[Rfam]
RNA sequence: GGCCCGCCUCUUGCUUAUUCGAACCUGCAGGUAACCAACGGCGGUUGCCCCACUUUACGACAAAGACGUCGC
Numbered sequence: 001g002g003c004c005c006g007c008c009u010c011u012u013g014c015u016u017a018u019u020c021g022a023a024c025c026u027g028c029a030g031g032u033a034a035c036c037a038a039c040g041g042c043g044g045u046u047g048c049c050c051c052a053c054u055u056u057a058c059g060a061c062a063a064a065g066a067c068g069u070c071g072c
Stems, first nucleotide, its partner, number of pairs: 030049007